[Rfam]
RNA sequence: UGACGGGGGCCCGCACAAGCGGUGGAGCAUGUGGUUUAAUUCGAAGCAACGCGCAGAACCUUACCAGGGCUUGAAUGGGCAGGCCGUAUCCAGAGAUGGAUAUUUCCCGCAAGGGACCUGCCACACAGGUGCUGCAUGGCUGUCGUCAGCUCGUGUCGUGAGAUGUUGGGUUAAGUCCCGCAACGAGCGCAACCCUUAUCUUUAGUUGCCAGCAUGUUUGGGUGGGCACUCUAGAGAGACUGCCGGUGACAAGCCGGAGGAAGGUGGGGAUGACGUCAAGUCCUCAUGGCCCUUAUGUCCUGGGCUACACACGUGCUACAAUGGCGGUGACAGUGGGAAGCUAGAUGGCGACAUCGUGCUGAUCUCUAAAAGCCGUCUCAGUUCGGAUUGCACUCUGCAACUCGAGUGCAUGAAGGUGGAAUCGCUAGUAAUCGCGGAUCAGCAUGCCGCGGUGAAUACGUUCCCGGGCCUUGUACACACCGCCCGUCACACCAUGGGAGUUGGUUUGACCUUAAGCCGGUGAGCGAACCGCAAGGACGCAGCCGAUCACGGUCGGGUCAGCGACUGGGGUGAAGUCGUAACAAGG
Numbered sequence: 001u002g003a004c005g006g007g008g009g010c011c012c013g014c015a016c017a018a019g020c021g022g023u024g025g026a027g028c029a030u031g032u033g034g035u036u037u038a039a040u041u042c043g044a045a046g047c048a049a050c051g052c053g054c055a056g057a058a059c060c061u062u063a064c065c066a067g068g069g070c071u072u073g074a075a076u077g078g079g080c081a082g083g084c085c086g087u088a089u090c091c092a093g094a095g096a097u098g099g100a101u102a103u104u105u106c107c108c109g110c111a112a113g114g115g116a117c118c119u120g121c122c123a124c125a126c127a128g129g130u131g132c133u134g135c136a137u138g139g140c141u142g143u144c145g146u147c148a149g150c151u152c153g154u155g156u157c158g159u160g161a162g163a164u165g166u167u168g169g170g171u172u173a174a175g176u177c178c179c180g181c182a183a184c185g186a187g188c189g190c191a192a193c194c195c196u197u198a199u200c201u202u203u204a205g206u207u208g209c210c211a212g213c214a215u216g217u218u219u220g221g222g223u224g225g226g227c228a229c230u231c232u233a234g235a236g237a238g239a240c241u242g243c244c245g246g247u248g249a250c251a252a253g254c255c256g257g258a259g260g261a262a263g264g265u266g267g268g269g270a271u272g273a274c275g276u277c278a279a280g281u282c283c284u285c286a287u288g289g290c291c292c293u294u295a296u297g298u299c300c301u302g303g304g305c306u307a308c309a310c311a312c313g314u315g316c317u318a319c320a321a322u323g324g325c326g327g328u329g330a331c332a333g334u335g336g337g338a339a340g341c342u343a344g345a346u347g348g349c350g351a352c353a354u355c356g357u358g359c360u361g362a363u364c365u366c367u368a369a370a371a372g373c374c375g376u377c378u379c380a381g382u383u384c385g386g387a388u389u390g391c392a393c394u395c396u397g398c399a400a401c402u403c404g405a406g407u408g409c410a411u412g413a414a415g416g417u418g419g420a421a422u423c424g425c426u427a428g429u430a431a432u433c434g435c436g437g438a439u440c441a442g443c444a445u446g447c448c449g450c451g452g453u454g455a456a457u458a459c460g461u462u463c464c465c466g467g468g469c470c471u472u473g474u475a476c477a478c479a480c481c482g483c484c485c486g487u488c489a490c491a492c493c494a495u496g497g498g499a500g501u502u503g504g505u506u507u508g509a510c511c512u513u514a515a516g517c518c519g520g521u522g523a524g525c526g527a528a529c530c531g532c533a534a535g536g537a538c539g540c541a542g543c544c545g546a547u548c549a550c551g552g553u554c555g556g557g558u559c560a561g562c563g564a565c566u567g568g569g570g571u572g573a574a575g576u577c578g579u580a581a582c583a584a585g586g
Stems, first nucleotide, its partner, number of pairs: 001477002003474003007471007015461002019425005024319001026317008034308002040055001042053002064303007076125002078122005086103007105116004128292002131290004137286002139281003142277001144275002149188006155164003167180004194269004199237007209226002213224003240260002243257005323377006335366003340359002345354003384415001389410007431453007480585001482582001485578002490572004495567003500562012516547001518545004524540003529536002